[Rfam]
RNA sequence: GAGAGGGUGACUGAUCGUGGGGAGGAAGCGUGGAGCGAAACUGCGAGCCGAUGGACAAGAACUGGAUAGAAGGCGUGGUUGACCAGGGCAAGCGGGCCAAAAACCGCAAAGCUCUCGUGAUCAAGGGGCAACGACGUAGAUCCGGCGGUUGUGCAGUGAAGGAGUGCGUUC
Numbered sequence: 001g002a003g004a005g006g007g008u009g010a011c012u013g014a015u016c017g018u019g020g021g022g023a024g025g026a027a028g029c030g031u032g033g034a035g036c037g038a039a040a041c042u043g044c045g046a047g048c049c050g051a052u053g054g055a056c057a058a059g060a061a062c063u064g065g066a067u068a069g070a071a072g073g074c075g076u077g078g079u080u081g082a083c084c085a086g087g088g089c090a091a092g093c094g095g096g097c098c099a100a101a102a103a104c105c106g107c108a109a110a111g112c113u114c115u116c117g118u119g120a121u122c123a124a125g126g127g128g129c130a131a132c133g134a135c136g137u138a139g140a141u142c143c144g145g146c147g148g149u150u151g152u153g154c155a156g157u158g159a160a161g162g163a164g165u166g167c168g169u170u171c
Stems, first nucleotide, its partner, number of pairs: 001016002005012002028171001030169003036162001040157006046150005062145006073137003078132004083127001086114004092107004
RNA: Group II catalytic intron D1-D4-3
Organism: Paraburkholderia sp. BL10I2N1